[Rfam]
RNA: SAM-I/IV (S-adenosyl methionine) riboswitch aptamer
RNA sequence: GCACAUUAUCAAGAGAUGGGUUAGAGAGUUAGCUCAAAGAUCCCACACCAACCUGGUUUUAAAAUUAAGGUGGUCCCGCUAACAACGAUAAGAAGUAUAAAUAAUUACAACAUA
Numbered sequence: 001g002c003a004c005a006u007u008a009u010c011a012a013g014a015g016a017u018g019g020g021u022u023a024g025a026g027a028g029u030u031a032g033c034u035c036a037a038a039g040a041u042c043c044c045a046c047a048c049c050a051a052c053c054u055g056g057u058u059u060u061a062a063a064a065u066u067a068a069g070g071u072g073g074u075c076c077c078g079c080u081a082a083c084a085a086c087g088a089u090a091a092g093a094a095g096u097a098u099a100a101a102u103a104a105u106u107a108c109a110a111c112a113u114a
Stems, first nucleotide, its partner, number of pairs: 006091005015046001017045004047074003052070003055066003059114001093102001